[Rfam]
RNA sequence: AAAUAAAAGGGGGAUGAAGCUCUCCCGGAAAAAUUCCAAAUGCUUCUAAUUACGGAGAUGAUGGCUUCUACAGAAAA
Numbered sequence: 001a002a003a004u005a006a007a008a009g010g011g012g013g014a015u016g017a018a019g020c021u022c023u024c025c026c027g028g029a030a031a032a033a034u035u036c037c038a039a040a041u042g043c044u045u046c047u048a049a050u051u052a053c054g055g056a057g058a059u060g061a062u063g064g065c066u067u068c069u070a071c072a073g074a075a076a077a
Stems, first nucleotide, its partner, number of pairs: 010025004016068006043057003
Dot-bracket structure: .........[[[[..((((((]]]].................(((.........))).....)))))).........

Shown here is a 77-nucleotide sequence from Ilyobacter polytropus, a member of the family "Fluoride riboswitch aptamer (crcB RNA motif)". Pairs were carried over by alignment from the consensus structure, which is taken from published work. Its family is annotated with response to fluoride and positive regulation of gene expression in the Gene Ontology.